[Rfam]
RNA sequence: UGUGAUUCCCACAAGUGGUGUAGUACACUACCCUGGGGCUACUUUUCCAUAUUUCGAAUUC
Numbered sequence: 001u002g003u004g005a006u007u008c009c010c011a012c013a014a015g016u017g018g019u020g021u022a023g024u025a026c027a028c029u030a031c032c033c034u035g036g037g038g039c040u041a042c043u044u045u046u047c048c049a050u051a052u053u054u055c056g057a058a059u060u061c
Stems, first nucleotide, its partner, number of pairs: 017045002020042005026036001

Shown here is a 61-nucleotide RNA sequence from Vanilla planifolia, a member of the family "Plastid-psbN 5UTR RNA".
NCBI's taxonomy places the organism under Eukaryota, Viridiplantae, Embryophyta, Euphyllophyta, Vanilla.
It scores 51 bits against the family's covariance model.
Rfam describes the family as follows. Plastid psbN is a non-coding RNA (ncRNA) recognised in plastids. It was reported as a conserved 11 stem-loop in the prime untranslated region (5UTR) of psbN genes. It has been reported that the motif is retained in a subset of mature transcripts in barley, which can suggests a possible role in transcript alternative 5 prime processing.